[Rfam]
RNA sequence: AGAGUAAGCGAGGUGGUUGCGGAUUGGCAAAAUUUGCCAAUCUGAGGAAAGUCCGGACUCCCGAAAGACCAAACUUGCUGGGUAACGCCCAGUGUGCGCAAGCGCGAGGAUAGUGCCACAGAAACAUACCGCCAAUUAGUCAUUUGUCAUUUGUCAUUUGUUUUUUACAAAGGACAAAGGACAAAAUUGGUAAGGGUGCAAAGGUGCGGUAAGAGCGCACCAGCAGCAUCGAGAGGUGCUGGCUCGGUAAACCCCGGUUGGGAGCAAGGUCGAAGGGACUACGGUUGGUCUUUUACCAGUCCCGCUGCGAGAGAACCGCUUGAGGUGUCUGGUAACAGACAUCCCAGAUAGAUAACCGCCCGUGCAACAGUUAGCCGAUCGCUGUAAGCUAAGCUAUUGAUUGUACGAACAGAAUCCGGCUUACGUCUUACUUUCUCC
Numbered sequence: 001a002g003a004g005u006a007a008g009c010g011a012g013g014u015g016g017u018u019g020c021g022g023a024u025u026g027g028c029a030a031a032a033u034u035u036g037c038c039a040a041u042c043u044g045a046g047g048a049a050a051g052u053c054c055g056g057a058c059u060c061c062c063g064a065a066a067g068a069c070c071a072a073a074c075u076u077g078c079u080g081g082g083u084a085a086c087g088c089c090c091a092g093u094g095u096g097c098g099c100a101a102g103c104g105c106g107a108g109g110a111u112a113g114u115g116c117c118a119c120a121g122a123a124a125c126a127u128a129c130c131g132c133c134a135a136u137u138a139g140u141c142a143u144u145u146g147u148c149a150u151u152u153g154u155c156a157u158u159u160g161u162u163u164u165u166u167a168c169a170a171a172g173g174a175c176a177a178a179g180g181a182c183a184a185a186a187u188u189g190g191u192a193a194g195g196g197u198g199c200a201a202a203g204g205u206g207c208g209g210u211a212a213g214a215g216c217g218c219a220c221c222a223g224c225a226g227c228a229u230c231g232a233g234a235g236g237u238g239c240u241g242g243c244u245c246g247g248u249a250a251a252c253c254c255c256g257g258u259u260g261g262g263a264g265c266a267a268g269g270u271c272g273a274a275g276g277g278a279c280u281a282c283g284g285u286u287g288g289u290c291u292u293u294u295a296c297c298a299g300u301c302c303c304g305c306u307g308c309g310a311g312a313g314a315a316c317c318g319c320u321u322g323a324g325g326u327g328u329c330u331g332g333u334a335a336c337a338g339a340c341a342u343c344c345c346a347g348a349u350a351g352a353u354a355a356c357c358g359c360c361c362g363u364g365c366a367a368c369a370g371u372u373a374g375c376c377g378a379u380c381g382c383u384g385u386a387a388g389c390u391a392a393g394c395u396a397u398u399g400a401u402u403g404u405a406c407g408a409a410c411a412g413a414a415u416c417c418g419g420c421u422u423a424c425g426u427c428u429u430a431c432u433u434u435c436u437c438c
Stems, first nucleotide, its partner, number of pairs: 001434008012360007020044009049422003053419005058264004067296001072259003076256002078092005093107001094105004108254002113252002115248003129195002131191007203221006223243001224241007268317003279307001282304002287302002290299002324343008

Bacterial RNase P class A: a 438-nucleotide sequence from Pleurocapsa sp. PCC 7327. Rfam's curators write: Ribonuclease P (RNase P) is a ubiquitous endoribonuclease, found in archaea, bacteria and eukarya as well as chloroplasts and mitochondria. The family's RNA type in Rfam is ribozyme. The family's consensus secondary structure is taken from published work.